[Rfam]
RNA: Small nucleolar RNA R44/J54/Z268 family
Nucleotides: 088
Base pairs, nucleotide, nucleotide: 002087003086004085005084006083
Number, partner (000 for none) and nucleotide at each position: 001000u002087u003086u004085g005084c006083a007000a008000a009000u010000g011000a012000u013000g014000a015000c016000a017000a018000a019000a020000a021000g022000a023000c024000a025000g026000g027000g028000a029000c030000a031000u032000c033000a034000g035000a036000a037000c038000u039000c040000c041000u042000c043000u044000u045000g046000g047000a048000g049000a050000a051000a052000a053000g054000a055000u056000g057000a058000c059000u060000u061000g062000g063000u064000c065000u066000g067000a068000u069000g070000g071000g072000a073000a074000u075000c076000u077000c078000u079000c080000u081000g082000a083006u084005g085004c086003a087002a088000u